[Rfam]
RNA sequence: UUCGGUCCUCGGUAGUGGCCCACGGACCCGUGCCCGUCACGGAAGCCGUGGACCUCGAUCGAAGACCGCC
Numbered sequence: 001u002u003c004g005g006u007c008c009u010c011g012g013u014a015g016u017g018g019c020c021c022a023c024g025g026a027c028c029c030g031u032g033c034c035c036g037u038c039a040c041g042g043a044a045g046c047c048g049u050g051g052a053c054c055u056c057g058a059u060c061g062a063a064g065a066c067c068g069c070c
Base pairs, nucleotide, nucleotide: 003068004067005066006065007064009062010061011060012059013058017054018053020051021050022049023048024047025046027042028041